[Rfam]
RNA sequence: CUUGUGGACUGUUAUAUCAAAUGGGAGUAGUCUUUUUUUCUUCAAAAAAGAGGACAAAACCAGACAGGUUGAAGCAAGAA
Numbered sequence: 001c002u003u004g005u006g007g008a009c010u011g012u013u014a015u016a017u018c019a020a021a022u023g024g025g026a027g028u029a030g031u032c033u034u035u036u037u038u039u040c041u042u043c044a045a046a047a048a049a050g051a052g053g054a055c056a057a058a059a060c061c062a063g064a065c066a067g068g069u070u071g072a073a074g075c076a077a078g079a080a
Stems, first nucleotide, its partner, number of pairs: 001078005009067005022062003030055003033050007

RAGATH-18 RNA: an 80-nucleotide RNA. Rfam classes the family as a small RNA.